[Rfam]
RNA sequence: GUCCGCAGUGCUCUAGCAGCACGUAAAUACUGGAGUUUGGGGUCGCCUCGCUGCUCUCCAGUAUUGCUUUGCUGCUUCAGUGAGGCUGGA
Numbered sequence: 001g002u003c004c005g006c007a008g009u010g011c012u013c014u015a016g017c018a019g020c021a022c023g024u025a026a027a028u029a030c031u032g033g034a035g036u037u038u039g040g041g042g043u044c045g046c047c048u049c050g051c052u053g054c055u056c057u058c059c060a061g062u063a064u065u066g067c068u069u070u071g072c073u074g075c076u077u078c079a080g081u082g083a084g085g086c087u088g089g090a
Stems, first nucleotide, its partner, number of pairs: 002089002005086002015076007023068001026065010
The family of this 90-nucleotide RNA from Pelusios castaneus is "mir-15 microRNA precursor family". Rfam links the family to the GO terms RISC complex and miRNA-mediated post-transcriptional gene silencing. The source organism's lineage runs through Eukaryota, Vertebrata, Dipnotetrapodomorpha, Archelosauria and Pelusios. This family represents the related mir-15a and mir-15b sequences. In humans miR-15a and miR-16 are clustered within 0.5 kb at 13q14. Pairs were carried over by alignment from the consensus structure, which was predicted with RNAalifold.